[Rfam]
RNA sequence: GCCCCGGGCAGGAUAUCAUCGUAUACUGUAAGUUGGCUAUGAGACACUACAGUAUAGAUGAUGUACUCCUCCGAGCGG
Numbered sequence: 001g002c003c004c005c006g007g008g009c010a011g012g013a014u015a016u017c018a019u020c021g022u023a024u025a026c027u028g029u030a031a032g033u034u035g036g037c038u039a040u041g042a043g044a045c046a047c048u049a050c051a052g053u054a055u056a057g058a059u060g061a062u063g064u065a066c067u068c069c070u071c072c073g074a075g076c077g078g
Stems, first nucleotide, its partner, number of pairs: 007070002010067002013064008022056009032045003

mir-144 microRNA precursor family: a 78-nucleotide RNA from Rissa tridactyla. On this family, see Chen et al., Genes Dev 2005: "The developmental miRNA profiles of zebrafish as determined by small RNA cloning". Gene Ontology terms of the family: miRNA-mediated post-transcriptional gene silencing and RISC complex. The family has 32 seed sequences and 594 matches in Rfam 15.1. The family's consensus secondary structure was predicted with RNAalifold. The source organism's lineage runs through Eukaryota, Deuterostomia, Sauropsida, Saurischia and Rissa.